[Rfam]
RNA sequence: CCGGACGCGAAUUUCGGUCCGGUGACGACUUGAGGGCACCGGCUCUCUCCCGGUGCUCCUUGUGCUCAGAUUGCUCAAUGGAGGAUUUGGAUAUGAGGA
Dot-bracket structure: ((((((.((.....))))))))...........(((((((((.......)))))))))((((((.(((((((.(((....)))))))))).))))))..